[Rfam]
RNA: glmS glucosamine-6-phosphate activated ribozyme aptamer
Organism: Paraliobacillus sp. PM-2
RNA sequence: AAAGUAACACAAGCGCCUGAACUAUUUUUCGAGCGGUGAAAAAUAGUUGACGAGGUGGAGGUUCAUUCGAAUUAAGUCGGCGGGUACCUCCCGGUUGCACACAUCUCCAACCGAUAGGCUAUCAUUCGAAAACAAUGAGGCGACUCGUUGUACAAGAAUAAUAGCAGAUGAUGUC
Numbered sequence: 001a002a003a004g005u006a007a008c009a010c011a012a013g014c015g016c017c018u019g020a021a022c023u024a025u026u027u028u029u030c031g032a033g034c035g036g037u038g039a040a041a042a043a044u045a046g047u048u049g050a051c052g053a054g055g056u057g058g059a060g061g062u063u064c065a066u067u068c069g070a071a072u073u074a075a076g077u078c079g080g081c082g083g084g085u086a087c088c089u090c091c092c093g094g095u096u097g098c099a100c101a102c103a104u105c106u107c108c109a110a111c112c113g114a115u116a117g118g119c120u121a122u123c124a125u126u127c128g129a130a131a132a133c134a135a136u137g138a139g140g141c142g143a144c145u146c147g148u149u150g151u152a153c154a155a156g157a158a159u160a161a162u163a164g165c166a167g168a169u170g171a172u173g174u175c
Stems, first nucleotide, its partner, number of pairs: 020048008029039001057091005067080004092113006118165005124159001133150007